[Rfam]
RNA sequence: CAGCCUCUGACAAAUGUGAAUGCUG
Number, nucleotide and partner (000 for none) at each position: 001c025002a024003g023004c022005c000006u000007c000008u020009g000010a017011c016012a000013a000014a000015u000016g011017u010018g000019a000020a008021u000022g004023c003024u002025g001
Rfam assigns this 25-nucleotide RNA from Oenanthe oenanthe to the family "L19-Flavobacteria ribosomal protein leader". Lineage of the source: Eukaryota > Craniata > Dinosauria > Muscicapidae > Oenanthe. It scores 32 bits against the family's covariance model. For this family Rfam cites "Discovery of 20 novel ribosomal leader candidates in bacteria and archaea" (Eckert and Weinberg, BMC Microbiol, 2020).